[Rfam]
A member of the RNA family "Group II catalytic intron D1-D4-2" from Apophysomyces sp. BC1034, 119 nucleotides long. The source organism's lineage runs through Eukaryota, Fungi, Mucoromycota, Mucoraceae and Apophysomyces. A reference for the family is Bonen and Vogel (2001), "The ins and outs of group II introns", Trends Genet. Group II introns are found in rRNA, tRNA and mRNA of organelles in fungi, plants and protists, and also in mRNA in bacteria.

RNA sequence: GGAAGUUGGCCUCCCGGAGUCGGCUUGCAGGAGCAGGCUUCAAACCGCCCGGUGCUGCUGCGUUCAAAAGGCGCGGUGGUGAGCGACCGCGGAAAAGUCAUCCGUCAAGGAUGGCAGGU
Numbered sequence: 001g002g003a004a005g006u007u008g009g010c011c012u013c014c015c016g017g018a019g020u021c022g023g024c025u026u027g028c029a030g031g032a033g034c035a036g037g038c039u040u041c042a043a044a045c046c047g048c049c050c051g052g053u054g055c056u057g058c059u060g061c062g063u064u065c066a067a068a069a070g071g072c073g074c075g076g077u078g079g080u081g082a083g084c085g086a087c088c089g090c091g092g093a094a095a096a097g098u099c100a101u102c103c104g105u106c107a108a109g110g111a112u113g114g115c116a117g118g119u
Stems, first nucleotide, its partner, number of pairs: 001015002004012002016041006023034004046118001048092002050089004054080002057077003061073004097115006